Plastid-rps12 3UTR RNA: a 106-nucleotide sequence from Dendrotrophe varians. The family's RNA type in Rfam is cis-regulatory element. The family has 1,299 seed sequences and 1,710 matches in Rfam 15.1. For this family Rfam cites "Retrograde signaling in plants: A critical review focusing on the GUN pathway and beyond" (Richter et al., Plant Commun, 2023).

RNA sequence: UUUACGUUGGUGCAAAUCCAAUCACCUCAAUUUAAGAAGAUAAGAAGCAAUCAAUUCCCCAUUGGUAGCAAAUAUGGUUAUUCCAUUAAGCGGGGGAAAUCCUAUU
Numbered sequence: 001u002u003u004a005c006g007u008u009g010g011u012g013c014a015a016a017u018c019c020a021a022u023c024a025c026c027u028c029a030a031u032u033u034a035a036g037a038a039g040a041u042a043a044g045a046a047g048c049a050a051u052c053a054a055u056u057c058c059c060c061a062u063u064g065g066u067a068g069c070a071a072a073u074a075u076g077g078u079u080a081u082u083c084c085a086u087u088a089a090g091c092g093g094g095g096g097a098a099a100u101c102c103u104a105u106u
Stems, first nucleotide, its partner, number of pairs: 007021004057095004061086002064083002066080004
Source information: Plastid rpl20 is a non-coding RNA (ncRNA) recognised in plastids. It was found in the three prime untranslated region (3UTR) of rps12 gene, its 3UTR location sugest a role in transcript maduration.